[Rfam]
RNA sequence: CGACCAUCUGGAGCGACCGAGAGACCCGGCUCGUCGACGUCGCAGCAACCCCAGAGGAGGGUGCUAACGCCGGGAUCGAUGGGAG
Numbered sequence: 001c002g003a004c005c006a007u008c009u010g011g012a013g014c015g016a017c018c019g020a021g022a023g024a025c026c027c028g029g030c031u032c033g034u035c036g037a038c039g040u041c042g043c044a045g046c047a048a049c050c051c052c053a054g055a056g057g058a059g060g061g062u063g064c065u066a067a068c069g070c071c072g073g074g075a076u077c078g079a080u081g082g083g084a085g
Stems, first nucleotide, its partner, number of pairs: 001085001004082005013043005021032003026073004044065004049061002051057002069077001
Shown here is an 85-nucleotide RNA from Gordonia polyisoprenivorans, a member of the family "SAM riboswitch aptamer (S box leader)". Pairs were carried over by alignment from the consensus structure, which is taken from published work. Taxonomically the source falls in Gordonia polyisoprenivorans (Bacteria, Actinomycetes, Gordoniaceae, Gordonia).